Shown here is a 238-nucleotide sequence from Spermophilus dauricus, a member of the family "Small nucleolar RNA SNORD17". About the family: The snoRNA HBI-43 belongs to the C/D family of snoRNAs, guiding 2'O-ribose methylation at position U3797 of the 28S rRNA. Pseudouridylation in position U3797 is predicted to be guided by the H/ACA snoRNA ACA48. Taxonomically the source falls in Spermophilus (Eukaryota, Opisthokonta, Sarcopterygii, Theria). It scores 242 bits against the family's covariance model. Rfam classes the family as a C/D-box small nucleolar RNA.
RNA sequence: GUGAAAUGAUGAUUCAGUUUAUCCAUUCGCUGAGUGUGCUGCAUUGACCUUCUUCCAAGCCUCAGUUCCUGUUCUAGAAACUUUGGUGCUAUGUAGCCUCCAAAUGCCCUGCAGUCUGUAAUGUUCUAUUGCAGAUUGCUUGUGUGUUGGUAGCCUACUGGUAAGAGUGGUUGAUGUCAGCAGGGAUGGGUCCCUCUGGGUCCUAUCUUACCAAGAUGAGUGGUGCAAAUCUGAUCAC
Numbered sequence: 001g002u003g004a005a006a007u008g009a010u011g012a013u014u015c016a017g018u019u020u021a022u023c024c025a026u027u028c029g030c031u032g033a034g035u036g037u038g039c040u041g042c043a044u045u046g047a048c049c050u051u052c053u054u055c056c057a058a059g060c061c062u063c064a065g066u067u068c069c070u071g072u073u074c075u076a077g078a079a080a081c082u083u084u085g086g087u088g089c090u091a092u093g094u095a096g097c098c099u100c101c102a103a104a105u106g107c108c109c110u111g112c113a114g115u116c117u118g119u120a121a122u123g124u125u126c127u128a129u130u131g132c133a134g135a136u137u138g139c140u141u142g143u144g145u146g147u148u149g150g151u152a153g154c155c156u157a158c159u160g161g162u163a164a165g166a167g168u169g170g171u172u173g174a175u176g177u178c179a180g181c182a183g184g185g186a187u188g189g190g191u192c193c194c195u196c197u198g199g200g201u202c203c204u205a206u207c208u209u210a211c212c213a214a215g216a217u218g219a220g221u222g223g224u225g226c227a228a229a230u231c232u233g234a235u236c237a238c
Stems, first nucleotide, its partner, number of pairs: 010237005017230004023223007030215002034211002038181004042176008050167005055161002058090003062086003065081003069077002093158004098153002106145002108142001111139013183209008192200002